[Rfam]
RNA: permuted transfer-messenger RNA
RNA sequence: GGCGAUAAACGCUGCGUGGCAUAGGCGGAUCGGACCCGGGGGCGGUACCCGGCGCCUCCACCAGUUCACCGGCCCCGCUAUGCGGGGCUGGUUUACGGGGGCGAAACAGGAUCGACGGACGCAAUAAAGGCGCAGUUUUUGCUCGGCAUGGUACCGCCGUUACCGGGCCAAACCACAAGUGCCAACGAUAACGACGUUGCACUCGCUGCUGCCGCCUAA
Numbered sequence: 001g002g003c004g005a006u007a008a009a010c011g012c013u014g015c016g017u018g019g020c021a022u023a024g025g026c027g028g029a030u031c032g033g034a035c036c037c038g039g040g041g042g043c044g045g046u047a048c049c050c051g052g053c054g055c056c057u058c059c060a061c062c063a064g065u066u067c068a069c070c071g072g073c074c075c076c077g078c079u080a081u082g083c084g085g086g087g088c089u090g091g092u093u094u095a096c097g098g099g100g101g102c103g104a105a106a107c108a109g110g111a112u113c114g115a116c117g118g119a120c121g122c123a124a125u126a127a128a129g130g131c132g133c134a135g136u137u138u139u140u141g142c143u144c145g146g147c148a149u150g151g152u153a154c155c156g157c158c159g160u161u162a163c164c165g166g167g168c169c170a171a172a173c174c175a176c177a178a179g180u181g182c183c184a185a186c187g188a189u190a191a192c193g194a195c196g197u198u199g200c201a202c203u204c205g206c207u208g209c210u211g212c213c214g215c216c217u218a219a
Base pairs, nucleotide, nucleotide: 001143002142003141004140005139014133015132016131017130026121027120030118031117032116036052037051038050039049040048053103054102055101056100057099058098059097144159145158146157147156